[Rfam]
RNA: c-di-AMP riboswitch aptamer (ydaO/yuaA leader)
Organism: Actinacidiphila guanduensis
RNA sequence: GAGCCACCUCCGCUCAAUCCGGCCUCGGCCGGAGCCGGGGACCCACAGGCACAUCGGGGUGAAUCGGGGCAGGACGCGCAGGCGUCCGACCCGUAGGGCGACCUUUCCGCCCGAACCCGUCAGCUAACCCGGUCGGCGGUCCACGGAAGGAGU
Numbered sequence: 001g002a003g004c005c006a007c008c009u010c011c012g013c014u015c016a017a018u019c020c021g022g023c024c025u026c027g028g029c030c031g032g033a034g035c036c037g038g039g040g041a042c043c044c045a046c047a048g049g050c051a052c053a054u055c056g057g058g059g060u061g062a063a064u065c066g067g068g069g070c071a072g073g074a075c076g077c078g079c080a081g082g083c084g085u086c087c088g089a090c091c092c093g094u095a096g097g098g099c100g101a102c103c104u105u106u107c108c109g110c111c112c113g114a115a116c117c118c119g120u121c122a123g124c125u126a127a128c129c130c131g132g133u134c135g136g137c138g139g140u141c142c143a144c145g146g147a148a149g150g151a152g153u
Stems, first nucleotide, its partner, number of pairs: 011138004018033005034133006044056001057118003065093004096112004